[Rfam]
RNA sequence: CCCCCGCUUUGCCUCCCUGAGCGGGGCCUUGCGGCACGCGCCCCAAGGCUUUUCCGCCCGGCUGCGCCGGGCAUCUUUUUU
Number, nucleotide and partner (000 for none) at each position: 001c000002c000003c025004c024005c023006g022007c021008u020009u000010u000011g000012c000013c000014u000015c000016c000017c000018u000019g000020a008021g007022c006023g005024g004025g003026g049027c048028c047029u046030u000031g000032c000033g043034g000035c000036a000037c000038g000039c000040g000041c000042c000043c033044c000045a000046a029047g028048g027049c026050u000051u000052u000053u000054c000055c000056g072057c071058c070059c069060g068061g067062c066063u000064g000065c000066g062067c061068c060069g059070g058071g057072c056073a000074u000075c000076u000077u000078u000079u000080u000081u000
The family of this 81-nucleotide RNA from Melaminivora alkalimesophila is "Burkholderia RNA 7 (anti-hemB)". This RNA motif was identified by computational search in b-proteobacteria Burkholderia. Co-purified with Hfq, expression confirmed by Northern blot. The family's RNA type in Rfam is small RNA. The family's consensus secondary structure is taken from published work. A search with the family's covariance model found it, with a score of 56 bits.